Background:
The record is a 71-nucleotide sequence from Gorilla gorilla, which matches "mir-3689 microRNA precursor family" in Rfam. Lineage of the source: Eukaryota > Metazoa > Dipnotetrapodomorpha > Hominoidea > Gorilla gorilla. Rfam links the family to the GO terms miRNA-mediated post-transcriptional gene silencing and RISC complex. The family's consensus secondary structure was predicted with RNAalifold.

[Rfam]
RNA sequence: GGGAGGUGUGAUAUUGUCUUCCCUGGAGGUGUGAUCCUGUGCUUCCUGGGAGGUGUGAUAUCAUGGUUACU
Number, nucleotide and partner (000 for none) at each position: 001g070002g000003g068004a067005g000006g000007u000008g000009u000010g000011a000012u000013a000014u058015u057016g056017u055018c000019u052020u051021c050022c049023c048024u000025g046026g045027a044028g043029g000030u041031g040032u039033g038034a000035u000036c000037c000038u033039g032040u031041g030042c000043u028044u027045c026046c025047u000048g023049g022050g021051a020052g019053g000054u000055g017056u016057g015058a014059u000060a000061u000062c000063a000064u000065g000066g000067u004068u003069a000070c001071u000
The match comes from Rfam's covariance-model search (58 bits).